Overview: Hepatitis C virus stem-loop SL8001 RNA: a 58-nucleotide sequence. Rfam's curators put it in the seed alignment. On this family, see Pirakitikulr et al., Mol Cell 2016: "The Coding Region of the HCV Genome Contains a Network of Regulatory RNA Structures". Rfam's curators write: Even though Hepatitis C virus (HCV) SL8001 is not required for overall replication, conformational changes in this motif tune the initial rate of replication. The family's RNA type in Rfam is cis-regulatory element.
Nucleotides: 058
Stems, first nucleotide, its partner, number of pairs: 004053007012045001014043001021039006
Number, partner (000 for none) and nucleotide at each position: 001000c002000u003000a004053u005052c006051c007050a008049g009048g010047a011000a012045g013000g014043c015000c016000g017000u018000a019000a020000c021039c022038c023037a024036c025035a026034u027000c028000c029000g030000c031000u032000c033000c034026g035025u036024g037023u038022g039021g040000c041000a042000a043014g044000a045012c046000c047010u048009c049008c050007u051006g052005g053004a054000g055000g056000a057000c058000a